This 122-nucleotide RNA sequence from Rhizobium sp. Leaf371 belongs to the Rfam family "Alphaproteobacterial ar14". It is annotated as a small RNA. Pairs were carried over by alignment from the consensus structure.
RNA sequence: AUGAUCUUGACGCUCCCAUCCUCCUCCCGGGAUCGUCAGUGUUGGUUGCAGCUUCUUCUCCUCCCGAGCUGCCAACCGGAAUUGAGAGCCUGCUGCACCUCCUCCCGCAGCAGGCUCUUUUC
Numbered sequence: 001a002u003g004a005u006c007u008u009g010a011c012g013c014u015c016c017c018a019u020c021c022u023c024c025u026c027c028c029g030g031g032a033u034c035g036u037c038a039g040u041g042u043u044g045g046u047u048g049c050a051g052c053u054u055c056u057u058c059u060c061c062u063c064c065c066g067a068g069c070u071g072c073c074a075a076c077c078g079g080a081a082u083u084g085a086g087a088g089c090c091u092g093c094u095g096c097a098c099c100u101c102c103u104c105c106c107g108c109a110g111c112a113g114g115c116u117c118u119u120u121u122c
Base pairs, nucleotide, nucleotide: 007039008038009037010036011035012034014032015031016030044077045076046075047074048072049071050070051069052068053067086117087116088115089114090113091112092111093110094109095108096107
Dot-bracket structure: ......((((((.(((.............))).))))))....((((((((((.............)))))).))))........(((((((((((..........))))))))))).....
The match comes from Rfam's covariance-model search (92 bits).